[Rfam]
A member of the RNA family "TPP riboswitch aptamer (THI element)" from Mediterraneibacter torques, 106 nucleotides long. Rfam links the family to the GO term thiamine pyrophosphate binding. The organism belongs to Mediterraneibacter torques, within Bacteria.
RNA sequence: AUUGAUGACAAGGGGAGCUUGUGUUACAGGCUGAGAGGAAGUUGGGAACUUCGACCCAUAACCUGAUUUGGAUAAUGCCAACGUAGGGAUUAUGUUAUGAGUGUUU
Numbered sequence: 001a002u003u004g005a006u007g008a009c010a011a012g013g014g015g016a017g018c019u020u021g022u023g024u025u026a027c028a029g030g031c032u033g034a035g036a037g038g039a040a041g042u043u044g045g046g047a048a049c050u051u052c053g054a055c056c057c058a059u060a061a062c063c064u065g066a067u068u069u070g071g072a073u074a075a076u077g078c079c080a081a082c083g084u085a086g087g088g089a090u091u092a093u094g095u096u097a098u099g100a101g102u103g104u105u106u
Base pairs, nucleotide, nucleotide: 006094007093010090012057013056014055017031018030019029020028021027038052039051040050041049042048062087063086064085065084068081069080070079071078
A search with the family's covariance model found it, with a score of 64 bits. From the family's description: Vitamin B(1) in its active form thiamin pyrophosphate (TPP) is an essential coenzyme that is synthesised by coupling of pyrimidine and thiazole moieties in bacteria.